[Rfam]
RNA sequence: CCUUUGGAGUGUUAUAUCAAACGAAAGUAGCUGUGUUAUAUUUGCUAAAUCGGACACGUCGAAAAAGGAA
Numbered sequence: 001c002c003u004u005u006g007g008a009g010u011g012u013u014a015u016a017u018c019a020a021a022c023g024a025a026a027g028u029a030g031c032u033g034u035g036u037u038a039u040a041u042u043u044g045c046u047a048a049a050u051c052g053g054a055c056a057c058g059u060c061g062a063a064a065a066a067g068g069a070a
Base pairs, nucleotide, nucleotide: 001068002067003066004065005064009057010056011055012054013053022052023051024050030045031044033041034040
Source information
Shown here is a 70-nucleotide sequence, a member of the family "RAGATH-18 RNA". The base pairs follow the family's consensus structure, which is taken from published work. The family's RNA type in Rfam is small RNA.